[Rfam]
RNA sequence: AUCUUUUAGUUCCUGUUUCCAUUGGAUCUGAACACUGAUCCUGAUGGUCAUAAAAGGAGGAAAAAUAAUGCUGAAGUUAGCCUCACAGUCUUGUAACAUGGCAAUAUAUUGUGUGGGCUACUUGCAAACAGGG
Numbered sequence: 001a002u003c004u005u006u007u008a009g010u011u012c013c014u015g016u017u018u019c020c021a022u023u024g025g026a027u028c029u030g031a032a033c034a035c036u037g038a039u040c041c042u043g044a045u046g047g048u049c050a051u052a053a054a055a056g057g058a059g060g061a062a063a064a065a066u067a068a069u070g071c072u073g074a075a076g077u078u079a080g081c082c083u084c085a086c087a088g089u090c091u092u093g094u095a096a097c098a099u100g101g102c103a104a105u106a107u108a109u110u111g112u113g114u115g116g117g118c119u120a121c122u123u124g125c126a127a128a129c130a131g132g133g
Stems, first nucleotide, its partner, number of pairs: 003060005019047005025040004078120006092111002
The family of this 133-nucleotide RNA from Cavia porcellus is "Small nucleolar RNA SNORA61". Lineage of the source: Eukaryota > Eumetazoa > Vertebrata > Dipnotetrapodomorpha > Cavia. Rfam links the family to the GO terms nucleolus and RNA processing. Rfam's curators write: ACA61 is a member of the H/ACA class of snoRNA that guide the sites of modification of uridines to pseudouridines.